[Rfam]
Nucleotides: 097
Stems, first nucleotide, its partner, number of pairs: 001097001003095005041047002
Number, partner (000 for none) and nucleotide at each position: 001097u002000u003095a004094a005093g006092u007091a008000u009000a010000u011000g012000a013000u014000g015000a016000a017000a018000u019000u020000a021000u022000a023000a024000a025000a026000u027000c028000u029000u030000a031000g032000g033000a034000c035000a036000c037000c038000u039000u040000c041047u042046g043000a044000c045000a046042c047041a048000g049000u050000a051000c052000g053000c054000c055000a056000a057000a058000u059000g060000c061000u062000g063000u064000g065000u066000a067000u068000g069000a070000g071000a072000a073000a074000g075000a076000u077000u078000u079000u080000a081000u082000a083000u084000u085000u086000c087000c088000u089000g090000a091007u092006a093005c094004u095003u096000u097001a

Small nucleolar RNA snoR31/Z110/Z27: a 97-nucleotide RNA sequence from Solanum tuberosum. On this family, see Barneche et al., J Mol Biol 2001: "Identification of 66 box C/D snoRNAs in Arabidopsis thaliana: extensive gene duplications generated multiple isoforms predicting new ribosomal RNA 2'-O-methylation sites". About the family: This family contains several related snoRNAs including R31, Z27 and Z110. Its family is annotated with nucleolus and RNA processing in the Gene Ontology. The source organism's lineage runs through Eukaryota, Embryophyta, Euphyllophyta, Spermatophyta and Solanum. By type it is a C/D-box small nucleolar RNA.